[Rfam]
RNA sequence: CCUGCAGGACGACCUGCUGGAAAUCGAGGAUACGCGGAACGAUCCGC
Numbered sequence: 001c002c003u004g005c006a007g008g009a010c011g012a013c014c015u016g017c018u019g020g021a022a023a024u025c026g027a028g029g030a031u032a033c034g035c036g037g038a039a040c041g042a043u044c045c046g047c
Stems, first nucleotide, its partner, number of pairs: 001020002004017005034047005
Shown here is a 47-nucleotide RNA sequence from Loktanella sp. 3ANDIMAR09, a member of the family "Guanidine-II riboswitch aptamer (mini-ykkC)". On this family, see Sherlock et al., Biochemistry 2017: "Biochemical Validation of a Second Guanidine Riboswitch Class in Bacteria". The base pairs follow the family's consensus structure, which is taken from published work. Taxonomically the source falls in Loktanella (Bacteria, Pseudomonadati, Pseudomonadota, Alphaproteobacteria). Rfam describes the family as follows. Simpler in structure and has fewer highly conserved nucleotide positions than the ykkC-yxkD leader.